[Rfam]
RNA sequence: UAGAAAAGGUGAGACAGCUCUGUGUGUCCUGCGUUCAGAAGAACAUUGAGGUAUAGCAAAAAUCAAUGUCCGAGAUAUCAUUUCGGUCGUCAUCUUUUUUAUUAGCAAUUCGAUUGUUGCUCGUCCACAU
Number, nucleotide and partner (000 for none) at each position: 001u000002a000003g000004a000005a000006a035007a034008g000009g032010u000011g029012a000013g028014a027015c026016a025017g000018c000019u000020c000021u000022g000023u000024g000025u016026g015027u014028c013029c011030u000031g000032c009033g000034u007035u006036c000037a000038g000039a000040a000041g000042a000043a000044c000045a000046u000047u000048g000049a000050g000051g000052u000053a000054u000055a000056g000057c000058a000059a000060a000061a000062a000063u000064c000065a000066a000067u000068g126069u000070c000071c123072g122073a121074g120075a000076u000077a114078u113079c112080a000081u000082u000083u000084c000085g000086g109087u108088c000089g106090u105091c000092a103093u000094c000095u101096u000097u000098u000099u000100u000101a095102u000103u092104a000105g090106c089107a000108a087109u086110u000111c000112g079113a078114u077115u000116g000117u000118u000119g000120c074121u073122c072123g071124u000125c000126c068127a000128c000129a000130u000
Shown here is a 130-nucleotide sequence from Juglans regia, a member of the family "Small nucleolar RNA snoR111".
Rfam 15.1 lists 533 matches to the family in 223 species.
A reference for the family is Marker et al. (2002), "Experimental RNomics: identification of 140 candidates for small non-messenger RNAs in the plant Arabidopsis thaliana", Curr Biol.
A search with the family's covariance model found it, with a score of 65 bits.